[Rfam]
RNA sequence: GGAGUCGGCCAGGCAAUCGCUGCACGCAUGCGUGUGGAGGAAAGUCCGGGCUCCAUUGGGCAGGGUGCCAGGUAACGCCUGGGCGGCGCGAGCCGACGGCCAGUGCAACAGAGAACAGACCGCCGAUGGCCCACCAUGUGGUGCACAGGUAAGGGUGAAACGGUGCGGUAAGAGCGCACCGCGCGACCGGCAACGGAAGCGGCACGGUAAACCCCACCCGGAGCAAGGCCAAAUAGGGGAACAACAGGCGUGGCCCGCGUCGUUCCCGGGUAGGCUGCUUGAGGUCCGCGGUGACGCGGAUCCCAGAGGAAUGAUUGCCCACGACAGAACCCGGCUUAUCGGCCGACUCCCUCU
Numbered sequence: 001g002g003a004g005u006c007g008g009c010c011a012g013g014c015a016a017u018c019g020c021u022g023c024a025c026g027c028a029u030g031c032g033u034g035u036g037g038a039g040g041a042a043a044g045u046c047c048g049g050g051c052u053c054c055a056u057u058g059g060g061c062a063g064g065g066u067g068c069c070a071g072g073u074a075a076c077g078c079c080u081g082g083g084c085g086g087c088g089c090g091a092g093c094c095g096a097c098g099g100c101c102a103g104u105g106c107a108a109c110a111g112a113g114a115a116c117a118g119a120c121c122g123c124c125g126a127u128g129g130c131c132c133a134c135c136a137u138g139u140g141g142u143g144c145a146c147a148g149g150u151a152a153g154g155g156u157g158a159a160a161c162g163g164u165g166c167g168g169u170a171a172g173a174g175c176g177c178a179c180c181g182c183g184c185g186a187c188c189g190g191c192a193a194c195g196g197a198a199g200c201g202g203c204a205c206g207g208u209a210a211a212c213c214c215c216a217c218c219c220g221g222a223g224c225a226a227g228g229c230c231a232a233a234u235a236g237g238g239g240a241a242c243a244a245c246a247g248g249c250g251u252g253g254c255c256c257g258c259g260u261c262g263u264u265c266c267c268g269g270g271u272a273g274g275c276u277g278c279u280u281g282a283g284g285u286c287c288g289c290g291g292u293g294a295c296g297c298g299g300a301u302c303c304c305a306g307a308g309g310a311a312u313g314a315u316u317g318c319c320c321a322c323g324a325c326a327g328a329a330c331c332c333g334g335c336u337u338a339u340c341g342g343c344c345g346a347c348u349c350c351c352u353c354u
Base pairs, nucleotide, nucleotide: 001350002349003348004347005346006345007344008343009342010341011339012319013318014317015316016315017314018313020037021036022035023034024033025032026031042337043336044335046334047333048332049331050330051223052222053221054220058256059255060254061253063219064218065217066216067215068082069081070080071079072078083097084095085094086093087092098214099213103212104211105208106207120154121153122150123149124148127145128144162180163179164178165177166176167175181203182201183200184199187196188195189194227276228275229274230273237267238266239265240264241263242262247261248260249259250258251257283302284301285300286299287298288297289296290295
Bacterial RNase P class A: a 354-nucleotide sequence from Abyssibacter profundi. A reference for the family is Frank and Pace (1998), "Ribonuclease P: unity and diversity in a tRNA processing ribozyme", Annu Rev Biochem. Rfam describes the family as follows. Ribonuclease P (RNase P) is a ubiquitous endoribonuclease, found in archaea, bacteria and eukarya as well as chloroplasts and mitochondria. It scores 328 bits against the family's covariance model. The source organism's lineage runs through Bacteria, Pseudomonadati, Gammaproteobacteria, Chromatiales and Abyssibacter. The base pairs follow the family's consensus structure, which is taken from published work. Rfam classes the family as a ribozyme.